This 444-nucleotide part of an RNA from Biomphalaria glabrata belongs to the Rfam family "Eukaryotic large subunit ribosomal RNA". The organism belongs to Biomphalaria, within Eukaryota. Rfam 15.1 lists 107,465 matches to the family in 2,616 species. The match comes from Rfam's covariance-model search (3111 bits). A reference for the family is Cannone et al. (2002), "The comparative RNA web (CRW) site: an online database of comparative sequence and structure information for ribosomal, intron, and other RNAs", BMC Bioinformatics.
RNA sequence: GACAAGUCGUUGCUACGGUAAUCCUGCUCAGUACGAGAGGAACCGCAGGUUCAGACAUUUGGUUCACGUGCUUGGCUGAUAAGCCAAUGGUGCGAGGCUACCAUCUGAGGGAUUAUGGCUGAACGCCUCUAAGUCAGAAUCCCGCCCGGAUAUGCGACGAUAUCUUUCGCACCCCUGCGUCGGGAGGCAACGAUAUGGCUGGGUUGUUUGGGGCCGCUACUCCUCGGGGUGGUGGCACCGGCCCGGCCUGGUCGAGCCGCAGUAAGAGGUCUUUGCCGUUCCGCCGAUCAGUGCGGGCGGGGACCUGGACGAUAUUCACCCCAUGCGGCGUGGAGGUGUUAAAUCAUUUGUAGACGACUUAGUUCUCGGUCGGGGUGUCGUAAUCAGUAGAGCAGCCACCUCACUGCGAUCUGUUGAGACUCAGCCUUUGACCAGGAGAUUUGU
Numbered sequence: 001g002a003c004a005a006g007u008c009g010u011u012g013c014u015a016c017g018g019u020a021a022u023c024c025u026g027c028u029c030a031g032u033a034c035g036a037g038a039g040g041a042a043c044c045g046c047a048g049g050u051u052c053a054g055a056c057a058u059u060u061g062g063u064u065c066a067c068g069u070g071c072u073u074g075g076c077u078g079a080u081a082a083g084c085c086a087a088u089g090g091u092g093c094g095a096g097g098c099u100a101c102c103a104u105c106u107g108a109g110g111g112a113u114u115a116u117g118g119c120u121g122a123a124c125g126c127c128u129c130u131a132a133g134u135c136a137g138a139a140u141c142c143c144g145c146c147c148g149g150a151u152a153u154g155c156g157a158c159g160a161u162a163u164c165u166u167u168c169g170c171a172c173c174c175c176u177g178c179g180u181c182g183g184g185a186g187g188c189a190a191c192g193a194u195a196u197g198g199c200u201g202g203g204u205u206g207u208u209u210g211g212g213g214c215c216g217c218u219a220c221u222c223c224u225c226g227g228g229g230u231g232g233u234g235g236c237a238c239c240g241g242c243c244c245g246g247c248c249u250g251g252u253c254g255a256g257c258c259g260c261a262g263u264a265a266g267a268g269g270u271c272u273u274u275g276c277c278g279u280u281c282c283g284c285c286g287a288u289c290a291g292u293g294c295g296g297g298c299g300g301g302g303a304c305c306u307g308g309a310c311g312a313u314a315u316u317c318a319c320c321c322c323a324u325g326c327g328g329c330g331u332g333g334a335g336g337u338g339u340u341a342a343a344u345c346a347u348u349u350g351u352a353g354a355c356g357a358c359u360u361a362g363u364u365c366u367c368g369g370u371c372g373g374g375g376u377g378u379c380g381u382a383a384u385c386a387g388u389a390g391a392g393c394a395g396c397c398a399c400c401u402c403a404c405u406g407c408g409a410u411c412u413g414u415u416g417a418g419a420c421u422c423a424g425c426c427u428u429u430g431a432c433c434a435g436g437a438g439a440u441u442u443g444u
Base pairs, nucleotide, nucleotide: 006161007160008159009158010157011156012155013154016148017147018146021051023049024048025047026046027045052107053106054105055104060100061099062098067094068093069092070091071090072087073086074085075084076083077082109143110142111141116136117135118134119133120132171337172336173335175333176332177331178330179329180328181327182326341442342441343440344439345438347361350358368433369432370431371430372429373427374426375425377420378419385413386412387411389410392407393406394405395404